[Rfam]
RNA sequence: AACGGUCCGGCCCUGCCCCCCCUGGGGCCGGACCGGAUGGCGACCCCCGCUCUCCCCCCCGGCGGGGGUCGCCGCAC
Numbered sequence: 001a002a003c004g005g006u007c008c009g010g011c012c013c014u015g016c017c018c019c020c021c022c023u024g025g026g027g028c029c030g031g032a033c034c035g036g037a038u039g040g041c042g043a044c045c046c047c048c049g050c051u052c053u054c055c056c057c058c059c060c061g062g063c064g065g066g067g068g069u070c071g072c073c074g075c076a077c
Stems, first nucleotide, its partner, number of pairs: 002038001004034010039073013
RNA: 6C RNA